Shown here is a 126-nucleotide sequence from Serratia ficaria, a member of the family "RtT RNA". Its family is annotated with cellular response to amino acid starvation in the Gene Ontology. The base pairs follow the family's consensus structure, which is taken from published work. Rfam 15.1 lists 651 matches to the family in 204 species. It scores 81 bits against the family's covariance model. This family represents a bacterial cis-regulatory element known as RtT RNA. The exact function of RtT is unknown although it is thought that it may be involved in changing the cellular response in relation to amino acid starvation. Rfam classes the family as a cis-regulatory element.
RNA sequence: UGGUGCACGACGUCGUGUUGGAUAAGAACCUGCGUUCAGGUUCGAGCCGAGCGAAGCGAGACGACAACGCGCAGCGUUGCCCGCAGGGUGAGGCCAAAGGCCGAAUCAAUCCUGCACGACCCACCA
Numbered sequence: 001u002g003g004u005g006c007a008c009g010a011c012g013u014c015g016u017g018u019u020g021g022a023u024a025a026g027a028a029c030c031u032g033c034g035u036u037c038a039g040g041u042u043c044g045a046g047c048c049g050a051g052c053g054a055a056g057c058g059a060g061a062c063g064a065c066a067a068c069g070c071g072c073a074g075c076g077u078u079g080c081c082c083g084c085a086g087g088g089u090g091a092g093g094c095c096a097a098a099g100g101c102c103g104a105a106u107c108a109a110u111c112c113u114g115c116a117c118g119a120c121c122c123a124c125c126a
Stems, first nucleotide, its partner, number of pairs: 015117004020112002023109001033090002036088002041085001043083002048058002065079006